[Rfam]
RNA sequence: GCGGAGGAUUGGAUGGCCGAGGUGCGGGGCAACUUGCAUCUAGGAAAGUCCGGACUCCAUCAAGGCACGGUGCCGGGUAACGCCCGGGCAGGGCAACCUGACGGAUAGCGCCACAGAGAACAGACCGCCUUGCUGUGACAAAGGUUCGCUUUUGGAUCAGCAAGGUAAGGGUGAAACGGUGGGGUAAGAGCCCACCGCGGUGAUGGUAACAUCGCUGGCAUGGCAAGCCCUACCGGGAGCAAUGCCAAAUAGGGGCCGCGCGUGCAGGGUAACUUGCGCAGGAUCGUCUUGAUCCGAGCAGGUCCGGGUUGGCAGCUAGAGGGCAUAUGGCAACAUAUGCUUGAGAUGAAUGGUCAUCGAAUUUGGGGUUUCGGCCCCAAAGGAACAAAAUCCGGCUUAUAGAUCCUCCGCGUAC
Numbered sequence: 001g002c003g004g005a006g007g008a009u010u011g012g013a014u015g016g017c018c019g020a021g022g023u024g025c026g027g028g029g030c031a032a033c034u035u036g037c038a039u040c041u042a043g044g045a046a047a048g049u050c051c052g053g054a055c056u057c058c059a060u061c062a063a064g065g066c067a068c069g070g071u072g073c074c075g076g077g078u079a080a081c082g083c084c085c086g087g088g089c090a091g092g093g094c095a096a097c098c099u100g101a102c103g104g105a106u107a108g109c110g111c112c113a114c115a116g117a118g119a120a121c122a123g124a125c126c127g128c129c130u131u132g133c134u135g136u137g138a139c140a141a142a143g144g145u146u147c148g149c150u151u152u153u154g155g156a157u158c159a160g161c162a163a164g165g166u167a168a169g170g171g172u173g174a175a176a177c178g179g180u181g182g183g184g185u186a187a188g189a190g191c192c193c194a195c196c197g198c199g200g201u202g203a204u205g206g207u208a209a210c211a212u213c214g215c216u217g218g219c220a221u222g223g224c225a226a227g228c229c230c231u232a233c234c235g236g237g238a239g240c241a242a243u244g245c246c247a248a249a250u251a252g253g254g255g256c257c258g259c260g261c262g263u264g265c266a267g268g269g270u271a272a273c274u275u276g277c278g279c280a281g282g283a284u285c286g287u288c289u290u291g292a293u294c295c296g297a298g299c300a301g302g303u304c305c306g307g308g309u310u311g312g313c314a315g316c317u318a319g320a321g322g323g324c325a326u327a328u329g330g331c332a333a334c335a336u337a338u339g340c341u342u343g344a345g346a347u348g349a350a351u352g353g354u355c356a357u358c359g360a361a362u363u364u365g366g367g368g369u370u371u372c373g374g375c376c377c378c379a380a381a382g383g384a385a386c387a388a389a390a391u392c393c394g395g396c397u398u399a400u401a402g403a404u405c406c407u408c409c410g411c412g413u414a415c
Stems, first nucleotide, its partner, number of pairs: 001411010011400001012358007020041009046398003050395005055239004063290003068235005073087005088102001089100004103230002108228002110224003125170002127166009178196006197219001198217008243314004253305005281295005322341008